Shown here is a 215-nucleotide RNA sequence from Streptococcus varani, a member of the family "FMN riboswitch aptamer (RFN element)". Rfam's curators write: The RFN element is a highly conserved domain that is found frequently in the 5'-untranslated regions of prokaryotic mRNAs that encode for flavin mononucleotide (FMN) biosynthesis and transport proteins. Taxonomically the source falls in Streptococcus (Bacteria, Bacillati, Bacillota, Streptococcaceae). The base pairs follow the family's consensus structure, which is taken from published work.
RNA sequence: AGGUGUCUUCAGGGCAGGGUGAGAUUCCCGACCGGCGGUGAUAAAGGAGACUUUUUUUCUCUAAAACGAGGCAGCGAGUUGUAGGCUAUACUAGAGUAUGCCAAGACGAGCUAAGGAAGUGACAGAAAAAAAGAGAUUCUUUGAAGUCCGCGAGCGAAAGCUGAUGUGGUGCAAUUCCACAACCGACAGUAAAGUCUGGAUGGGAGGAGACGAAG
Dot-bracket structure: ...(((((((......(((.......))).[[((((((.............................................................................................................))))..((....))...(((((.......)))))..)).(((....]]))).......)))))))...